Shown here is an 83-nucleotide RNA from a Desulfobacteraceae bacterium, a member of the family "Group II catalytic intron D1-D4-1". It scores 67 bits against the family's covariance model. The base pairs follow the family's consensus structure. From the family's description: Group II introns are found in rRNA, tRNA and mRNA of organelles in fungi, plants and protists, and also in mRNA in bacteria. On this family, see Bonen and Vogel, Trends Genet 2001: "The ins and outs of group II introns".

RNA sequence: CUACGAGUGCCGUGAGGUGCUAAGAAGGGUUGGCAGAAGUCAGCAGAGGCCAUAGUAGCUGAAACAACCAUUCAGUGAAGGGC
Numbered sequence: 001c002u003a004c005g006a007g008u009g010c011c012g013u014g015a016g017g018u019g020c021u022a023a024g025a026a027g028g029g030u031u032g033g034c035a036g037a038a039g040u041c042a043g044c045a046g047a048g049g050c051c052a053u054a055g056u057a058g059c060u061g062a063a064a065c066a067a068c069c070a071u072u073c074a075g076u077g078a079a080g081g082g083c
Base pairs, nucleotide, nucleotide: 001027002026006021007020008019009018010017011016040047041046049083050082051081058076059075060074061073062072063071